[Rfam]
RNA sequence: UGUUGCGGUUAAAACGUUCGAAGUUGAUUCUUGUCCAACACAGGCCGGCCCCUGGCGACUUGUCACCCAGUGUGGCGCGUCAGGCGCGUCCGGAUUCCGGUUGCGACUCACAACACAGUGUGCCUGGGCCGCUACUCUGUGUCCACGCGUGCGGCUUGCCGUUGCGAGUGGUCCACAGUGCCCAGCUACUUGCGUUUACCUUGAACAAAUUAGAGUGCUCUAAGCAGGCUACAUAUGCGGCCGAGAAUAAUCUUGCAUGGAAUAAUGGAAUAUGACCUCGGUCUUAAUCUUUCAUUGGUUUGUAAUCAGACUCAGAGGUAAUGAUUAACAGAAGUAGUUGGGGGCAUUAGUAUUACGGCGCGAGAGGUGAAAUUCGUAGACCGUCGUAAGACUAACUAAAGCGAAAGCAUUUGCCAAGGAUGCUUUCAUUAAUCAAGAACGAAAGUUAGAGGAUCGAAGGCGAUUAGAUACCGCCCUAGUUCUAACCGUAAACGAUGCCAAUUAGCAAUUGGGAGACGCUACCCUUCUUUCGGUGCUCUCAGUGGCUUCCGGGAAACCAAAAUCAGGUUCCGG
Numbered sequence: 001u002g003u004u005g006c007g008g009u010u011a012a013a014a015c016g017u018u019c020g021a022a023g024u025u026g027a028u029u030c031u032u033g034u035c036c037a038a039c040a041c042a043g044g045c046c047g048g049c050c051c052c053u054g055g056c057g058a059c060u061u062g063u064c065a066c067c068c069a070g071u072g073u074g075g076c077g078c079g080u081c082a083g084g085c086g087c088g089u090c091c092g093g094a095u096u097c098c099g100g101u102u103g104c105g106a107c108u109c110a111c112a113a114c115a116c117a118g119u120g121u122g123c124c125u126g127g128g129c130c131g132c133u134a135c136u137c138u139g140u141g142u143c144c145a146c147g148c149g150u151g152c153g154g155c156u157u158g159c160c161g162u163u164g165c166g167a168g169u170g171g172u173c174c175a176c177a178g179u180g181c182c183c184a185g186c187u188a189c190u191u192g193c194g195u196u197u198a199c200c201u202u203g204a205a206c207a208a209a210u211u212a213g214a215g216u217g218c219u220c221u222a223a224g225c226a227g228g229c230u231a232c233a234u235a236u237g238c239g240g241c242c243g244a245g246a247a248u249a250a251u252c253u254u255g256c257a258u259g260g261a262a263u264a265a266u267g268g269a270a271u272a273u274g275a276c277c278u279c280g281g282u283c284u285u286a287a288u289c290u291u292u293c294a295u296u297g298g299u300u301u302g303u304a305a306u307c308a309g310a311c312u313c314a315g316a317g318g319u320a321a322u323g324a325u326u327a328a329c330a331g332a333a334g335u336a337g338u339u340g341g342g343g344g345c346a347u348u349a350g351u352a353u354u355a356c357g358g359c360g361c362g363a364g365a366g367g368u369g370a371a372a373u374u375c376g377u378a379g380a381c382c383g384u385c386g387u388a389a390g391a392c393u394a395a396c397u398a399a400a401g402c403g404a405a406a407g408c409a410u411u412u413g414c415c416a417a418g419g420a421u422g423c424u425u426u427c428a429u430u431a432a433u434c435a436a437g438a439a440c441g442a443a444a445g446u447u448a449g450a451g452g453a454u455c456g457a458a459g460g461c462g463a464u465u466a467g468a469u470a471c472c473g474c475c476c477u478a479g480u481u482c483u484a485a486c487c488g489u490a491a492a493c494g495a496u497g498c499c500a501a502u503u504a505g506c507a508a509u510u511g512g513g514a515g516a517c518g519c520u521a522c523c524c525u526u527c528u529u530u531c532g533g534u535g536c537u538c539u540c541a542g543u544g545g546c547u548u549c550c551g552g553g554a555a556a557c558c559a560a561a562a563u564c565a566g567g568u569u570c571c572g573g
Base pairs, nucleotide, nucleotide: 006572007571008570014569016440017439018438019437023433024432025431331427332426333425334424335422336421338419339418343415344414345413346412349393350392353389354388355387356386357385358384359383360382364375365374366373401408402407445486446485447484448483449482450481455479459475460474461473462472497568498567499566501563502562504547505546506545509542510541511540512539513538514537515536518534519533520532551558552557
Dot-bracket structure: .....(((.....(.((((...(((.................................................................................................................................................................................................................................................................................................................((((((.((...((((..((..((((((((...(((......)))......))))))))..)).......((....))...))))..)).)).))))...)))...))))....((((((....(...((((.........))))...).))))))..........(((.((.(((..(((((((..(((...........))).)))))))..)))...((....))...))..))))))).
This 573-nucleotide part of an RNA from Anopheles darlingi belongs to the Rfam family "Eukaryotic small subunit ribosomal RNA". The family's consensus secondary structure is taken from published work. Gene Ontology terms of the family: ribosome and structural constituent of ribosome. It scores 1579 bits against the family's covariance model.